The record is a 175-nucleotide RNA from Psychrilyobacter sp. S5, which matches "Lysine riboswitch aptamer" in Rfam. A reference for the family is Mandal et al. (2003), "Riboswitches Control Fundamental Biochemical Pathways in Bacillus subtilis and Other Bacteria", Cell. Taxonomically the source falls in Psychrilyobacter (Bacteria, Fusobacteriia, Fusobacteriales, Fusobacteriaceae). The family's consensus secondary structure is taken from published work. Rfam links the family to the GO term lysine biosynthetic process.
[Rfam]
RNA sequence: AAUGAAGAUAGAGGUUGCAAACCUUAGGAGUAUUUUGGAGGAGUCGGAUAGACUUUGAGACCAAAAGAAAGGAAGUUUUGCCGAAAUUUAAGAUUUGUCGAAAUCUUAGGUUGGGACUAUGGAUAAUAUCUGUAGGACUGUCAUUAUCAGAUGAUAAUGGGGAGCUGUCGAAUGA
Numbered sequence: 001a002a003u004g005a006a007g008a009u010a011g012a013g014g015u016u017g018c019a020a021a022c023c024u025u026a027g028g029a030g031u032a033u034u035u036u037g038g039a040g041g042a043g044u045c046g047g048a049u050a051g052a053c054u055u056u057g058a059g060a061c062c063a064a065a066a067g068a069a070a071g072g073a074a075g076u077u078u079u080g081c082c083g084a085a086a087u088u089u090a091a092g093a094u095u096u097g098u099c100g101a102a103a104u105c106u107u108a109g110g111u112u113g114g115g116a117c118u119a120u121g122g123a124u125a126a127u128a129u130c131u132g133u134a135g136g137a138c139u140g141u142c143a144u145u146a147u148c149a150g151a152u153g154a155u156a157a158u159g160g161g162g163a164g165c166u167g168u169c170g171a172a173u174g175a
Base pairs, nucleotide, nucleotide: 007169008168009167010166011165017081018080019079020078021077023075024074025073033066034065035064036063037062038061085112086111087110088109089108090107091106092105093104094103095102096101113139114138117135118134119133120132121131122130123129141160142159143158144157145156146155147154
Dot-bracket structure: ......(((((.....(((((.(((.......((((((......................))))))......))).)))))...((((((((((((....))))))))))))((..(((((((.....)))))))..)).(((((((......)))))))....)))))......